Rfam assigns this 80-nucleotide RNA from Medicago truncatula to the family "small nucleolar RNA snoR114". Rfam links the family to the GO terms RNA processing and nucleolus. The family's consensus secondary structure was predicted with RNAalifold. Taxonomically the source falls in Medicago (Eukaryota, Embryophyta, Magnoliopsida, rosids). By type it is a C/D-box small nucleolar RNA.
RNA sequence: GAGCUAUGAUGAUAAUAUAUGUGUUGUUCGGUAACAUCACUUCUCCUGAAACAUUGGAUGAAAAUAAUACCUCUGAGCUC
Numbered sequence: 001g002a003g004c005u006a007u008g009a010u011g012a013u014a015a016u017a018u019a020u021g022u023g024u025u026g027u028u029c030g031g032u033a034a035c036a037u038c039a040c041u042u043c044u045c046c047u048g049a050a051a052c053a054u055u056g057g058a059u060g061a062a063a064a065u066a067a068u069a070c071c072u073c074u075g076a077g078c079u080c
Base pairs, nucleotide, nucleotide: 001080002079003078004077